[Rfam]
RNA sequence: AUGGGCUGCACUUGCUGUCGAUGACAGCGCCCAGGCAGCUCGAACCUUCAAGGCUGCGCCAUUUCGAUGGUGGUUCUCCCAAGUGCGAUUCGCGUUCGGCAGCUCGCACGGUCAUCGAUUCGUCGGUGAUGAGCGC
Numbered sequence: 001a002u003g004g005g006c007u008g009c010a011c012u013u014g015c016u017g018u019c020g021a022u023g024a025c026a027g028c029g030c031c032c033a034g035g036c037a038g039c040u041c042g043a044a045c046c047u048u049c050a051a052g053g054c055u056g057c058g059c060c061a062u063u064u065c066g067a068u069g070g071u072g073g074u075u076c077u078c079c080c081a082a083g084u085g086c087g088a089u090u091c092g093c094g095u096u097c098g099g100c101a102g103c104u105c106g107c108a109c110g111g112u113c114a115u116c117g118a119u120u121c122g123u124c125g126g127u128g129a130u131g132a133g134c135g136c
Stems, first nucleotide, its partner, number of pairs: 011029001014028006035057006043075004058071005105135002111130008